[Rfam]
Rfam assigns this 97-nucleotide RNA sequence from Pseudoflavonifractor capillosus to the family "Purine riboswitch aptamer". Pairs were carried over by alignment from the consensus structure, which is taken from published work.

RNA sequence: GAUGCAACUAAACAGAGAACUUAUAUAGGCCCAAAAUUGGUUGGGCGUCUCUACCGGCUGCCGGAACAGCCGCGCUAUAAGUUUCCCGGUUUAUCCG
Numbered sequence: 001g002a003u004g005c006a007a008c009u010a011a012a013c014a015g016a017g018a019a020c021u022u023a024u025a026u027a028g029g030c031c032c033a034a035a036a037u038u039g040g041u042u043g044g045g046c047g048u049c050u051c052u053a054c055c056g057g058c059u060g061c062c063g064g065a066a067c068a069g070c071c072g073c074g075c076u077a078u079a080a081g082u083u084u085c086c087c088g089g090u091u092u093a094u095c096c097g
Stems, first nucleotide, its partner, number of pairs: 018083008029046006055072006